[Rfam]
RNA sequence: GUUUAUCUUCGAGUUUGCCUUUCAGGCAAACAUCGUAUUAUUAUAUGUGCUUUUUCACUUCGUUGCAAAAGCACGGAAAAAACUUUUUUCAUGAUUUGAUAAUCCUUGCAAAAAGUUUUUAUGGGA
Numbered sequence: 001g002u003u004u005a006u007c008u009u010c011g012a013g014u015u016u017g018c019c020u021u022u023c024a025g026g027c028a029a030a031c032a033u034c035g036u037a038u039u040a041u042u043a044u045a046u047g048u049g050c051u052u053u054u055u056c057a058c059u060u061c062g063u064u065g066c067a068a069a070a071g072c073a074c075g076g077a078a079a080a081a082a083c084u085u086u087u088u089u090c091a092u093g094a095u096u097u098g099a100u101a102a103u104c105c106u107u108g109c110a111a112a113a114a115g116u117u118u119u120u121a122u123g124g125g126a
Stems, first nucleotide, its partner, number of pairs: 011034002013031008047074008078120011091106001093104004
About this RNA: TD-1 RNA: a 126-nucleotide RNA from Treponema denticola. Rfam's curators put it in the seed alignment. Clan: TD (Treponema denticola) motifs. On this family, see Weinberg et al., Nucleic Acids Res 2007: "Identification of 22 candidate structured RNAs in bacteria using the CMfinder comparative genomics pipeline". The family's consensus secondary structure is taken from published work. It is annotated as a cis-regulatory element.